[Rfam]
Description: A member of the RNA family "Makes More Granules Regulator RNA (mmgR)" from Sphingomonas sp. YR710, 77 nucleotides long. A search with the family's covariance model found it, with a score of 54 bits. By type it is a small RNA. About the family: SuhB later renamed mmgR (makes more granules regulator) was a putative non-coding RNA found multiple times in the Agrobacterium tumefaciens genome and related alpha-proteobacteria. The family is grouped with related families in Rfam's "suhB sRNA clan".
RNA sequence: AUAAUGGGCCUUUCAGGCAUCCUCUCCUAAAACUUUACGGGCCGGCCCUUUAUGGACCGGCCCUUUUUUUGGCCCGC
Numbered sequence: 001a002u003a004a005u006g007g008g009c010c011u012u013u014c015a016g017g018c019a020u021c022c023u024c025u026c027c028u029a030a031a032a033c034u035u036u037a038c039g040g041g042c043c044g045g046c047c048c049u050u051u052a053u054g055g056a057c058c059g060g061c062c063c064u065u066u067u068u069u070u071g072g073c074c075c076g077c
Stems, first nucleotide, its partner, number of pairs: 008018004040062006047055002
Dot-bracket structure: .......((((...)))).....................((((((.((.....)).))))))...............